[Rfam]
RNA sequence: CUUGACCGAGCCGAGCAGCAGCGGCUGGUCCCGGUCCUGGCCGUAGGUGGCCAGCAGUGCCUGCGCCUC
Numbered sequence: 001c002u003u004g005a006c007c008g009a010g011c012c013g014a015g016c017a018g019c020a021g022c023g024g025c026u027g028g029u030c031c032c033g034g035u036c037c038u039g040g041c042c043g044u045a046g047g048u049g050g051c052c053a054g055c056a057g058u059g060c061c062u063g064c065g066c067c068u069c
Stems, first nucleotide, its partner, number of pairs: 014026003031065001032059002037054003041050003
RNA: ASpks TB sRNA
Organism: Actinophytocola oryzae